Rfam assigns this 178-nucleotide RNA from Zingiber officinale to the family "U2 spliceosomal RNA".
Pairs were carried over by alignment from the consensus structure, which is taken from published work.
Taxonomically the source falls in Zingiber (Eukaryota, Embryophyta, Euphyllophyta, Zingiberaceae).
It is annotated as a spliceosomal small nuclear RNA.
A reference for the family is Zwieb (1997), "The uRNA database", Nucleic Acids Res.
[Rfam]
RNA sequence: AUACCCUUCUUGGCCUUUUGGUUAAGAUCAAGUGUAGUAUCUGAUGUUGUCAGUUUAACAUCUAAUAUACAAAAUUAAAUUAAUUUUUUAUGAGGGAGAGUUGGUUAAUCCUAUUUAUGGGCACUAAUUUAUGCGUAUUCAUGCAUUAUAUUACACAUGCAACGCGUGUGCACGACGA
Number, nucleotide and partner (000 for none) at each position: 001a000002u000003a000004c000005c000006c000007u000008u027009c026010u025011u000012g023013g022014c021015c020016u000017u000018u000019u000020g015021g014022u013023u012024a000025a010026g009027a008028u000029c000030a000031a000032g000033u000034g000035u000036a000037g000038u000039a000040u000041c000042u000043g000044a000045u000046g000047u000048u067049g066050u065051c000052a063053g062054u000055u000056u000057a000058a000059c000060a000061u000062c053063u052064a000065a050066u049067a048068u000069a000070c000071a000072a000073a000074a000075u000076u000077a000078a000079a000080u000081u000082a000083a000084u000085u000086u000087u000088u000089u000090a000091u000092g000093a000094g000095g000096g000097a000098g130099a129100g128101u127102u126103g125104g124105u123106u000107a000108a000109u000110c121111c120112u119113a118114u000115u000116u000117a000118u113119g112120g111121g110122c000123a105124c104125u103126a102127a101128u100129u099130u098131a000132u000133g171134c170135g169136u168137a167138u166139u000140c000141a000142u161143g160144c159145a000146u000147u000148a000149u000150a000151u000152u000153a000154c000155a000156c000157a000158u000159g144160c143161a142162a000163c000164g000165c000166g138167u137168g136169u135170g134171c133172a000173c000174g000175a000176c000177g000178a000